[Rfam]
RNA sequence: CUUGAUCGAACCGAGCCACAGCGGUUCUUCCCGGUCCCGGCCAUAGGUGGCCAGCAGCGCCUGCGCCUC
Numbered sequence: 001c002u003u004g005a006u007c008g009a010a011c012c013g014a015g016c017c018a019c020a021g022c023g024g025u026u027c028u029u030c031c032c033g034g035u036c037c038c039g040g041c042c043a044u045a046g047g048u049g050g051c052c053a054g055c056a057g058c059g060c061c062u063g064c065g066c067c068u069c
Stems, first nucleotide, its partner, number of pairs: 014026004032059002037054001039052001041050003
The family of this 69-nucleotide sequence from Spongiactinospora gelatinilytica is "ASpks TB sRNA". Taxonomically the source falls in Spongiactinospora (Bacteria, Actinomycetota, Actinomycetes, Streptosporangiales). It is annotated as an antisense RNA. Rfam 15.1 lists 9,052 matches to the family in 683 species. Pairs were carried over by alignment from the consensus structure, which is taken from published work.